Record summary
The family of this 88-nucleotide RNA from Brevibacillus sp. CF112 is "RT-9 RNA". Taxonomically the source falls in Brevibacillus (Bacteria, Bacillota, Bacilli, Caryophanales). By type it is a small RNA. The family's consensus secondary structure is taken from published work. Rfam's curators put it in the seed alignment.

[Rfam]
RNA sequence: GUCCGGUGUCGCUACGGCUGCACCGACCGUCCUUGGACUUCAAGGGAGAGCCAAUCCUUCACCUAUCGGUGUAAACACAUGGACAAGU
Numbered sequence: 001g002u003c004c005g006g007u008g009u010c011g012c013u014a015c016g017g018c019u020g021c022a023c024c025g026a027c028c029g030u031c032c033u034u035g036g037a038c039u040u041c042a043a044g045g046g047a048g049a050g051c052c053a054a055u056c057c058u059u060c061a062c063c064u065a066u067c068g069g070u071g072u073a074a075a076c077a078c079a080u081g082g083a084c085a086a087g088u
Stems, first nucleotide, its partner, number of pairs: 004025006011018002060071004